mir-5928 microRNA precursor family: a 75-nucleotide RNA from Haemonchus placei.
It scores 70 bits against the family's covariance model.
Its family is annotated with miRNA-mediated post-transcriptional gene silencing and RISC complex in the Gene Ontology.
Pairs were carried over by alignment from the consensus structure, which was predicted with RNAalifold.
Lineage of the source: Eukaryota > Bilateria > Rhabditina > Rhabditomorpha > Haemonchus.

[Rfam]
Nucleotides: 075
Base pairs, nucleotide, nucleotide: 001074002073005070006069007068008067009066011064012063013062014061015060016059017058018057019056020055021054022053023052025050026049027048028047030045032043033042034041035040
Number, partner (000 for none) and nucleotide at each position: 001074g002073g003000c004000a005070c006069a007068a008067a009066c010000u011064c012063g013062g014061a015060g016059u017058a018057g019056a020055g021054u022053a023052g024000u025050u026049u027048a028047g029000u030045a031000g032043g033042g034041u035040u036000a037000a038000a039000u040035g041034a042033u043032c044000c045030u046000u047028c048027u049026a050025a051000u052023c053022u054021a055020c056019u057018c058017u059016a060015c061014u062013u063012c064011g065000a066009g067008u068007u069006u070005g071000c072000a073002c074001c075000u